[Rfam]
RNA sequence: GUACGUCUUCAGGGCGGGGUGAAAGUCCCCACCGGCGGUGGUCCAUGCAUUGCAUGGCAAGCCCGCGAGCGCCCGCACCGGCCACGGUGCGGGGUCAGCAGAUCUGGUAGCCAAGCCAGAGCCGACGGUCAUAGUCCGGAUGAGAGAAGAUGUGC
Numbered sequence: 001g002u003a004c005g006u007c008u009u010c011a012g013g014g015c016g017g018g019g020u021g022a023a024a025g026u027c028c029c030c031a032c033c034g035g036c037g038g039u040g041g042u043c044c045a046u047g048c049a050u051u052g053c054a055u056g057g058c059a060a061g062c063c064c065g066c067g068a069g070c071g072c073c074c075g076c077a078c079c080g081g082c083c084a085c086g087g088u089g090c091g092g093g094g095u096c097a098g099c100a101g102a103u104c105u106g107g108u109a110g111c112c113a114a115g116c117c118a119g120a121g122c123c124g125a126c127g128g129u130c131a132u133a134g135u136c137c138g139g140a141u142g143a144g145a146g147a148a149g150a151u152g153u154g155c
Stems, first nucleotide, its partner, number of pairs: 003153008017029003031135002033124002035066004061122002069099002103120005126138003
RNA: FMN riboswitch aptamer (RFN element)